[Rfam]
RNA: Group II catalytic intron D1-D4-6
RNA sequence: AGAGUCAUACAACAAAGAAAUAGCCAGUCAUGUUGGCCCCGAGUCAUGUGAGCGUAGCCGUAAGGGUGCGCUUGAAGCGUUGACAGGGGGAAAUGCAGGCCGGGCAAUAGAACCGCGAAAUCGACGCAAUACUCCGGGAGGCCGACGUUGUCAGAGGAUGCGGAAGGCCAUACGAGAGGGCACGUUAACGAACGGGCAAGGUGCCACUCGCUCCCGCGCGGUCGGAGAACC
Numbered sequence: 001a002g003a004g005u006c007a008u009a010c011a012a013c014a015a016a017g018a019a020a021u022a023g024c025c026a027g028u029c030a031u032g033u034u035g036g037c038c039c040c041g042a043g044u045c046a047u048g049u050g051a052g053c054g055u056a057g058c059c060g061u062a063a064g065g066g067u068g069c070g071c072u073u074g075a076a077g078c079g080u081u082g083a084c085a086g087g088g089g090g091a092a093a094u095g096c097a098g099g100c101c102g103g104g105c106a107a108u109a110g111a112a113c114c115g116c117g118a119a120a121u122c123g124a125c126g127c128a129a130u131a132c133u134c135c136g137g138g139a140g141g142c143c144g145a146c147g148u149u150g151u152c153a154g155a156g157g158a159u160g161c162g163g164a165a166g167g168c169c170a171u172a173c174g175a176g177a178g179g180g181c182a183c184g185u186u187a188a189c190g191a192a193c194g195g196g197c198a199a200g201g202u203g204c205c206a207c208u209c210g211c212u213c214c215c216g217c218g219c220g221g222u223c224g225g226a227g228a229a230c231c
Stems, first nucleotide, its partner, number of pairs: 010035005017029002021199001023197002037089004043084004047079002049074008058065002110223001112222006135216006141168003146162003173210004178205002183200001